[Rfam]
RNA sequence: AGCCAGUGAUGCUUCAAAGAGUAGUGGACAGAAUAGAUUUCUGACACCUUUAAAGAACCCUGAGGCU
Dot-bracket structure: ((((...........................................................))))

A member of the RNA family "Small nucleolar RNA SNORD75" from Hymenochirus boettgeri, 67 nucleotides long. NCBI's taxonomy places the organism under Eukaryota, Teleostomi, Euteleostomi, Sarcopterygii, Hymenochirus. For this family Rfam cites "Purified box C/D snoRNPs are able to reproduce site-specific 2'-O-methylation of target RNA in vitro" (Galardi et al., Mol Cell Biol, 2002). The family's consensus secondary structure was predicted with RNAalifold. Rfam links the family to the GO terms RNA processing and nucleolus. It is annotated as a C/D-box small nucleolar RNA.